Record summary: This 93-nucleotide RNA belongs to the Rfam family "Repression of heat shock gene expression (ROSE) element".
RNA sequence: CCGGAUGCCGGCAGGGUCCGGUAUGGAGAGCGCCCGCUCUCUCGGGCGCAUCUUCAUAGACUUGUUGCUCAAUGGAGGACUUGGAUAUGAGGA
Numbered sequence: 001c002c003g004g005a006u007g008c009c010g011g012c013a014g015g016g017u018c019c020g021g022u023a024u025g026g027a028g029a030g031c032g033c034c035c036g037c038u039c040u041c042u043c044g045g046g047c048g049c050a051u052c053u054u055c056a057u058a059g060a061c062u063u064g065u066u067g068c069u070c071a072a073u074g075g076a077g078g079a080c081u082u083g084g085a086u087a088u089g090a091g092g093a
Base pairs, nucleotide, nucleotide: 001021002020003019004018005017006016008015009014028052029051030049031048032047033046034045035044036043053091054090055089056088057087058086061083064080065079066078068077069076070075
The family has 13 seed sequences and 381 matches in Rfam 15.1. The literature on the family includes a 2004 paper in J Bacteriol by Balsiger et al., "Replicon-specific regulation of small heat shock genes in Agrobacterium tumefaciens". This family represents a 5' UTR cis-regulatory element found in heat shock mRNAs and is known as the ROSE (repression of heat shock gene expression) element. The ROSE element is a negative regulator of heat shock gene expression. The secondary structure is thought to be regulated by temperature. The family's consensus secondary structure is taken from published work.